[Rfam]
RNA sequence: AUGUAUCUUACACGUUUGCUGUUCGAGUUACAUACGAGUGUCAUUUAUGAUCACUCUUUAUAUCGGUUAGAAUUUGUUUUCAAAUUCAAGCUGAUACUCGAGGGAAAGUCCCCGAACCCAAGGAUAGCAACUAUCCGAUCUUUUAUAUAAGAUCUAUUAUGUUUACAUGCUGAACACUAUAGACAAUGUUAUUUACCAAGAUGAGAUUUAUCUCAGAGUUGAUAACUUUGUCUGUGUUUGGUGAACAUGAUAUUGUUGCAAAUAAAGUUAUGCAAACAGUCUAUGGAAACAUCGACUUACACGAGGGGUGCUUAUGAGUGAGGUACA
Number, nucleotide and partner (000 for none) at each position: 001a000002u327003g326004u325005a324006u323007c322008u321009u320010a319011c318012a000013c000014g277015u276016u275017u274018g273019c272020u000021g000022u102023u101024c100025g099026a098027g097028u096029u000030a000031c000032a000033u000034a000035c000036g000037a086038g085039u084040g000041u082042c000043a080044u000045u000046u000047a000048u000049g000050a000051u000052c000053a000054c000055u000056c000057u000058u000059u000060a000061u000062a000063u000064c000065g000066g000067u000068u000069a000070g000071a000072a000073u000074u000075u000076g000077u000078u000079u000080u043081c000082a041083a000084a039085u038086u037087c000088a000089a000090g000091c000092u000093g000094a000095u000096a028097c027098u026099c025100g024101a023102g022103g000104g000105a000106a313107a312108g311109u000110c310111c308112c307113c306114g000115a000116a000117c000118c000119c000120a000121a000122g000123g135124a134125u133126a132127g000128c000129a000130a000131c000132u126133a125134u124135c123136c000137g000138a000139u000140c000141u000142u000143u000144u000145a000146u000147a000148u000149a000150a000151g000152a000153u000154c000155u000156a000157u000158u000159a000160u000161g000162u000163u000164u000165a000166c000167a000168u000169g000170c000171u000172g239173a238174a237175c236176a235177c234178u000179a000180u000181a233182g232183a231184c230185a000186a000187u000188g000189u000190u000191a000192u000193u221194u000195a219196c218197c000198a000199a000200g000201a000202u000203g214204a213205g212206a211207u000208u000209u000210a000211u206212c205213u204214c203215a000216g000217a000218g196219u195220u000221g193222a000223u000224a000225a000226c000227u000228u000229u000230g184231u183232c182233u181234g177235u176236g175237u174238u173239u172240g000241g000242u000243g000244a000245a000246c000247a000248u000249g000250a000251u000252a000253u000254u000255g000256u000257u000258g000259c000260a000261a000262a000263u000264a000265a000266a000267g000268u000269u000270a000271u000272g019273c018274a017275a016276a015277c014278a000279g296280u295281c294282u000283a292284u291285g000286g000287a000288a000289a000290c000291a284292u283293c000294g281295a280296c279297u000298u000299a000300c000301a000302c000303g000304a000305g000306g113307g112308g111309u000310g110311c108312u107313u106314a000315u000316g000317a000318g011319u010320g009321a008322g007323g006324u005325a004326c003327a002
RNase MRP: a 327-nucleotide RNA sequence from Rotaria socialis. By type it is a ribozyme. The match comes from Rfam's covariance-model search (86 bits). The source organism's lineage runs through Eukaryota, Metazoa, Spiralia, Gnathifera and Rotaria.